[Rfam]
RNA sequence: ACGCAUCACGCGGGAGAGCGCAUGCGGCCGGGAAACCCGCCGCCAUGCCGCCGAAGGCGCAAUUCGCCCAGAAUCGCUCAGGCUCCAAUACCGCAUCGUGUGC
Numbered sequence: 001a002c003g004c005a006u007c008a009c010g011c012g013g014g015a016g017a018g019c020g021c022a023u024g025c026g027g028c029c030g031g032g033a034a035a036c037c038c039g040c041c042g043c044c045a046u047g048c049c050g051c052c053g054a055a056g057g058c059g060c061a062a063u064u065c066g067c068c069c070a071g072a073a074u075c076g077c078u079c080a081g082g083c084u085c086c087a088a089u090a091c092c093g094c095a096u097c098g099u100g101u102g103c
Stems, first nucleotide, its partner, number of pairs: 006098001008096001010094004020048004050083003053079002057077003063070001
Shown here is a 103-nucleotide sequence from Pigmentiphaga aceris, a member of the family "Glycine riboswitch aptamer". The source organism's lineage runs through Bacteria, Pseudomonadati, Pseudomonadota, Betaproteobacteria and Pigmentiphaga. The pairing is the family consensus, mapped onto this sequence.